[Rfam]
RNA sequence: CGUAAGUUUCAGGGAAGGUGCAAUUCCUUACUGGCGGUAACGCACGCGGCCGAGUCCAUAACGGCCGGUCGUGCGAAGCCCGCGAGCCGCUUCGGCGGCCGAUCCGGUGCGAUUCCGGGGCCAACGGUACAGUCCGGAUGAAAGAAACGGAGC
Numbered sequence: 001c002g003u004a005a006g007u008u009u010c011a012g013g014g015a016a017g018g019u020g021c022a023a024u025u026c027c028u029u030a031c032u033g034g035c036g037g038u039a040a041c042g043c044a045c046g047c048g049g050c051c052g053a054g055u056c057c058a059u060a061a062c063g064g065c066c067g068g069u070c071g072u073g074c075g076a077a078g079c080c081c082g083c084g085a086g087c088c089g090c091u092u093c094g095g096c097g098g099c100c101g102a103u104c105c106g107g108u109g110c111g112a113u114u115c116c117g118g119g120g121c122c123a124a125c126g127g128u129a130c131a132g133u134c135c136g137g138a139u140g141a142a143a144g145a146a147a148c149g150g151a152g153c
Stems, first nucleotide, its partner, number of pairs: 003151001006148005016028003030133002032123002034083004086099003103119005125136003

A member of the RNA family "FMN riboswitch aptamer (RFN element)" from Bifidobacterium jacchi, 153 nucleotides long. Its family is annotated with FMN binding in the Gene Ontology. NCBI's taxonomy places the organism under Bacteria, Actinomycetota, Actinomycetes, Bifidobacteriaceae, Bifidobacterium.